[Rfam]
Nucleotides: 075
Base pairs, nucleotide, nucleotide: 002073004071005070006069
Number, partner (000 for none) and nucleotide at each position: 001000u002073g003000u004071a005070c006069c007000a008000g009000u010000g011000a012000u013000g014000g015000c016000a017000g018000g019000u020000a021000u022000c023000a024000g025000c026000g027000a028000a029000c030000a031000a032000g033000u034000u035000g036000c037000a038000g039000a040000g041000g042000a043000u044000g045000a046000a047000u048000g049000g050000c051000a052000u053000g054000u055000g056000u057000c058000u059000a060000g061000a062000a063000c064000u065000c066000u067000g068000a069006g070005g071004u072000c073002u074000a075000a